[Rfam]
Nucleotides: 073
Base pairs, nucleotide, nucleotide: 001073002072005069006068007067008066009065010064011062012061013060014059015058016057017056020054021053023051024050025049026048027047028046029045
Number, partner (000 for none) and nucleotide at each position: 001073g002072g003000a004000u005069g006068u007067c008066g009065u010064c011062u012061u013060a014059c015058c016057u017056g018000a019000g020054c021053a022000a023051u024050a025049u026048u027047a028046g029045a030000g031000u032000g033000c034000u035000a036000u037000u038000u039000g040000a041000u042000u043000c044000a045029u046028c047027u048026a049025a050024u051023a052000c053021u054020g055000u056017c057016a058015g059014g060013u061012a062011a063000u064010g065009a066008u067007g068006a069005u070000c071000a072002c073001c
Rfam assigns this 73-nucleotide sequence from Thelazia callipaeda to the family "mir-236 microRNA precursor family". Pairs were carried over by alignment from the consensus structure, which was predicted with RNAalifold. Taxonomically the source falls in Thelazia (Eukaryota, Opisthokonta, Spirurina, Spiruromorpha). It scores 65 bits against the family's covariance model. The family is grouped with related families in Rfam's "mir-8 microRNA precursor clan".